The record is a 107-nucleotide RNA from Papaver somniferum, which matches "Small nucleolar RNA snoR97" in Rfam.
The family has 7 seed sequences and 862 matches in Rfam 15.1.
The family's consensus secondary structure was predicted with WAR.
The literature on the family includes a 2002 paper in Curr Biol by Marker et al., "Experimental RNomics: identification of 140 candidates for small non-messenger RNAs in the plant Arabidopsis thaliana".
The organism belongs to Papaver, within Eukaryota.
A search with the family's covariance model found it, with a score of 83 bits.
It is annotated as an H/ACA-box small nucleolar RNA.

[Rfam]
RNA sequence: GUUAACUGGUGGACAUGAAGACUGAAAAAACUCAUAGAGCGUGUGUUGUCUAUCAGCUUCUUCUUUCGUAAUCAACGAGAUGGGAGUUAAAUAACAGCACUACAUUU
Numbered sequence: 001g002u003u004a005a006c007u008g009g010u011g012g013a014c015a016u017g018a019a020g021a022c023u024g025a026a027a028a029a030a031c032u033c034a035u036a037g038a039g040c041g042u043g044u045g046u047u048g049u050c051u052a053u054c055a056g057c058u059u060c061u062u063c064u065u066u067c068g069u070a071a072u073c074a075a076c077g078a079g080a081u082g083g084g085a086g087u088u089a090a091a092u093a094a095c096a097g098c099a100c101u102a103c104a105u106u107u
Base pairs, nucleotide, nucleotide: 043100044099045098046097047096048095055088056087057086058085059084060083062080063079064078065077